[Rfam]
RNA sequence: ACCCAAAAACAUCAAGAAAAGCCUUUCAUUAAAUUGCUUUUCUCUUGGCGAGAGAGAGAGGUGGCGACAAGAGGGCUCCGGGACUUAUGUUUCGGAGUCUUUUUUCUUUCGCUUCUUUUUUUCCCGGAGAACACCUUUCAGGACCAAUUACCGUAGUUGCGACUACAACAAUUGUUGUUCAUACCCCCACGAUUUACUUUUUGAAAACUAGUUUUUGGAAUAAUAAUGUUGUAAAAUUCCCUUUUUCCACCCCAAUUUGUAUUUUAUUCGUUACAAAAUUGGGACUAAUAUUAAGGGCGACAGUU
Numbered sequence: 001a002c003c004c005a006a007a008a009a010c011a012u013c014a015a016g017a018a019a020a021g022c023c024u025u026u027c028a029u030u031a032a033a034u035u036g037c038u039u040u041u042c043u044c045u046u047g048g049c050g051a052g053a054g055a056g057a058g059a060g061g062u063g064g065c066g067a068c069a070a071g072a073g074g075g076c077u078c079c080g081g082g083a084c085u086u087a088u089g090u091u092u093c094g095g096a097g098u099c100u101u102u103u104u105u106c107u108u109u110c111g112c113u114u115c116u117u118u119u120u121u122u123c124c125c126g127g128a129g130a131a132c133a134c135c136u137u138u139c140a141g142g143a144c145c146a147a148u149u150a151c152c153g154u155a156g157u158u159g160c161g162a163c164u165a166c167a168a169c170a171a172u173u174g175u176u177g178u179u180c181a182u183a184c185c186c187c188c189a190c191g192a193u194u195u196a197c198u199u200u201u202u203g204a205a206a207a208c209u210a211g212u213u214u215u216u217g218g219a220a221u222a223a224u225a226a227u228g229u230u231g232u233a234a235a236a237u238u239c240c241c242u243u244u245u246u247c248c249a250c251c252c253c254a255a256u257u258u259g260u261a262u263u264u265u266a267u268u269c270g271u272u273a274c275a276a277a278a279u280u281g282g283g284a285c286u287a288a289u290a291u292u293a294a295g296g297g298c299g300a301c302a303g304u305u
Stems, first nucleotide, its partner, number of pairs: 003218008025205004030196007040131006047125002050123012070104003073100012141180004145174005153166005239297005251283008259274003
RNA: Small nucleolar RNA snR83